[Rfam]
Nucleotides: 126
Stems, first nucleotide, its partner, number of pairs: 001126008013043005021032003026082004044074004049070002052065003083115006
Number, partner (000 for none) and nucleotide at each position: 001126c002125u003124c004123u005122u006121a007120u008119c009000a010000a011000g012000a013043g014042c015041g016040c017039c018000c019000g020000a021032g022031a023030g024000a025000c026082c027081u028080g029079g030023c031022u032021c033000a034000c035000c036000g037000a038000c039017g040016g041015c042014g043013c044074a045073g046072c047071a048000a049070c050069c051000g052065g053064c054063c055000c056000u057000c058000a059000u060000c061000a062000c063054g064053g065052c066000a067000a068000c069050g070049g071047u072046g073045c074044u075000c076000c077000c078000u079029c080028c081027a082026g083115c084114c085113u086112g087111a088110g089000a090000a091000a092000u093000c094000g095000c096000c097000g098000a099000c100000g101000a102000u103000g104000g105000c106000g107000c108000g109000c110088c111087u112086c113085g114084g115083g116000a117000c118000c119008g120007a121006u122005a123004a124003g125002g126001g
This 126-nucleotide sequence from Deinococcus yavapaiensis belongs to the Rfam family "SAM riboswitch aptamer (S box leader)". NCBI's taxonomy places the organism under Bacteria, Thermotogati, Deinococci, Deinococcaceae, Deinococcus yavapaiensis. Gene Ontology term of the family: regulation of gene expression. Pairs were carried over by alignment from the consensus structure, which is taken from published work.